[Rfam]
RNA: Alphaproteobacterial ar14
RNA sequence: CAACUUCGGAGCAGCGCACUUCUCCUCCCAGCGCGCGCCGAUGGGGAUCGGUAACUCUCCUCCUCCCGGUUGCCGAUCAGAACAAGCAGCGCCCGCCGGACCUCCUCCCCCGGCGGGCGUUGUUU
Number, nucleotide and partner (000 for none) at each position: 001c000002a000003a000004c000005u000006u000007c040008g039009g038010a000011g036012c035013a000014g034015c033016g032017c031018a000019c000020u000021u000022c000023u000024c000025c000026u000027c000028c000029c000030a000031g017032c016033g015034c014035g012036c011037g000038c009039c008040g007041a000042u000043g000044g000045g000046g078047a077048u076049c075050g074051g073052u072053a071054a070055c069056u000057c000058u000059c000060c000061u000062c000063c000064u000065c000066c000067c000068g000069g055070u054071u053072g052073c051074c050075g049076a048077u047078c046079a000080g000081a000082a000083c000084a000085a000086g000087c000088a000089g120090c119091g118092c117093c116094c115095g114096c113097c112098g111099g110100a000101c000102c000103u000104c000105c000106u000107c000108c000109c000110c099111c098112g097113g096114c095115g094116g093117g092118c091119g090120u089121u000122g000123u000124u000125u000